[Rfam]
RNA sequence: UCAGGGCAAUGACCUAUGAUUUGACAGACAGUGUUUUCUAGGCCUGCCUGUCAUUUCCUUAGGCCAAUACUCUGU
Numbered sequence: 001u002c003a004g005g006g007c008a009a010u011g012a013c014c015u016a017u018g019a020u021u022u023g024a025c026a027g028a029c030a031g032u033g034u035u036u037u038c039u040a041g042g043c044c045u046g047c048c049u050g051u052c053a054u055u056u057c058c059u060u061a062g063g064c065c066a067a068u069a070c071u072c073u074g075u
Stems, first nucleotide, its partner, number of pairs: 002074005008068001010066002013063004018057002022053006029046003

About this RNA
mir-192/215 microRNA precursor family: a 75-nucleotide RNA sequence from Phrynocephalus forsythii. About the family: This family represents the human microRNA (miRNA) precursors mir-192 and mir-215. The match comes from Rfam's covariance-model search (73 bits). The base pairs follow the family's consensus structure, which was predicted with PFOLD.